[Rfam]
RNA sequence: CAUAUAUUUUAUGAAGGUAUAAUACUAAACUCCUAAUGGGAGGUAUUGUGCUUGAUAUUCAUAUG
Numbered sequence: 001c002a003u004a005u006a007u008u009u010u011a012u013g014a015a016g017g018u019a020u021a022a023u024a025c026u027a028a029a030c031u032c033c034u035a036a037u038g039g040g041a042g043g044u045a046u047u048g049u050g051c052u053u054g055a056u057a058u059u060c061a062u063a064u065g
Base pairs, nucleotide, nucleotide: 001065002064003063004062005061016052017051018050019049020048021047022046023045024044025043031041032040033039
RNA: Selenocysteine insertion sequence 1